[Rfam]
MIR1435 microRNA precursor family: a 208-nucleotide sequence from Miscanthus lutarioriparius.
The family's consensus secondary structure was predicted with RNAalifold.
It scores 102 bits against the family's covariance model.
Rfam 15.1 lists 1,765 matches to the family in 31 species.
Lineage of the source: Eukaryota > Streptophyta > Liliopsida > Andropogoneae > Miscanthus.
RNA sequence: UGGCUUUGUCCUAAGUCAAACUUUUCUAACUCUGACAGUUUGACGAAGUUUAUAGAAAUAUAUAUUGACAUCUACAAUACCAAAUAAGUGCACUCUCAAGAUAUAUUGCAUGGUGGAUUCAAUGAAACUAAUUUGGCGUUAAAAAUGUUGUUACAUUUUUGUAUAGACUUGGUCAAAAUUAGAUAAGUUUGACUUAGGAGAAAACCAA
Numbered sequence: 001u002g003g004c005u006u007u008g009u010c011c012u013a014a015g016u017c018a019a020a021c022u023u024u025u026c027u028a029a030c031u032c033u034g035a036c037a038g039u040u041u042g043a044c045g046a047a048g049u050u051u052a053u054a055g056a057a058a059u060a061u062a063u064a065u066u067g068a069c070a071u072c073u074a075c076a077a078u079a080c081c082a083a084a085u086a087a088g089u090g091c092a093c094u095c096u097c098a099a100g101a102u103a104u105a106u107u108g109c110a111u112g113g114u115g116g117a118u119u120c121a122a123u124g125a126a127a128c129u130a131a132u133u134u135g136g137c138g139u140u141a142a143a144a145a146u147g148u149u150g151u152u153a154c155a156u157u158u159u160u161g162u163a164u165a166g167a168c169u170u171g172g173u174c175a176a177a178a179u180u181a182g183a184u185a186a187g188u189u190u191g192a193c194u195u196a197g198g199a200g201a202a203a204a205c206c207a208a
Base pairs, nucleotide, nucleotide: 005203006202007201009199011197012196013195014194015193016192017191018190019189020188021187022186023185025183026182039177040176041175042174043173053163054162056160057159058158060156063153064152067149068148069147070146071145073143076140080136081135082134083133084132085131